RNA sequence: GUCAGCAGUGCUCUAGCAGCACGUAAAUACUGGAGUCGAGGACUGCCUGGCUGCUCUCCAGUAUUGCAUUGCUGCUUGAGUGAGGCUGGA
Numbered sequence: 001g002u003c004a005g006c007a008g009u010g011c012u013c014u015a016g017c018a019g020c021a022c023g024u025a026a027a028u029a030c031u032g033g034a035g036u037c038g039a040g041g042a043c044u045g046c047c048u049g050g051c052u053g054c055u056c057u058c059c060a061g062u063a064u065u066g067c068a069u070u071g072c073u074g075c076u077u078g079a080g081u082g083a084g085g086c087u088g089g090a
Base pairs, nucleotide, nucleotide: 002089003088004087005086006085013078015076016075017074018073019072020071021070026065027064028063029062030061031060032059033058034057035056
Rfam assigns this 90-nucleotide RNA from Alligator mississippiensis to the family "mir-15 microRNA precursor family". This family represents the related mir-15a and mir-15b sequences. In humans miR-15a and miR-16 are clustered within 0.5 kb at 13q14. The literature on the family includes a 2001 paper in Science by Lagos-Quintana et al., "Identification of novel genes coding for small expressed RNAs". The family's consensus secondary structure was predicted with RNAalifold. The match comes from Rfam's covariance-model search (63 bits). Rfam links the family to the GO terms RISC complex and miRNA-mediated post-transcriptional gene silencing. The source organism's lineage runs through Eukaryota, Metazoa, Dipnotetrapodomorpha, Archelosauria and Alligator.